The family of this 139-nucleotide sequence from Microvirga subterranea is "Alphaproteobacterial sRNA BjrC1505". Lineage of the source: Bacteria > Pseudomonadota > Hyphomicrobiales > Methylobacteriaceae > Microvirga. On this family, see Madhugiri et al., RNA Biol 2012: "Small RNAs of the Bradyrhizobium/Rhodopseudomonas lineage and their analysis".
RNA sequence: ACGGUCUUUAACCGGACCUUAAGGUUUCCAGGGCAUAAACGGUGCAUCCAGUUUCCUCUGGAUGCCGAGUGGCUCCUGUCCACUCUGUUUGACGCCUCCCUGUUAUGACCUCGAGCCGCCCUUGGGCGGCUCAUUUUUC
Numbered sequence: 001a002c003g004g005u006c007u008u009u010a011a012c013c014g015g016a017c018c019u020u021a022a023g024g025u026u027u028c029c030a031g032g033g034c035a036u037a038a039a040c041g042g043u044g045c046a047u048c049c050a051g052u053u054u055c056c057u058c059u060g061g062a063u064g065c066c067g068a069g070u071g072g073c074u075c076c077u078g079u080c081c082a083c084u085c086u087g088u089u090u091g092a093c094g095c096c097u098c099c100c101u102g103u104u105a106u107g108a109c110c111u112c113g114a115g116c117c118g119c120c121c122u123u124g125g126g127c128g129g130c131u132c133a134u135u136u137u138u139c
Stems, first nucleotide, its partner, number of pairs: 001043002004040001005014001016036001020035001025030001046063006067085006091104004113132008